[Rfam]
RNA: DUF805b RNA
RNA sequence: GAGGGGGAAACCGAAAACCCUGAACAGAGUAGGUA
Numbered sequence: 001g002a003g004g005g006g007g008a009a010a011c012c013g014a015a016a017a018c019c020c021u022g023a024a025c026a027g028a029g030u031a032g033g034u035a
Stems, first nucleotide, its partner, number of pairs: 002021004010034003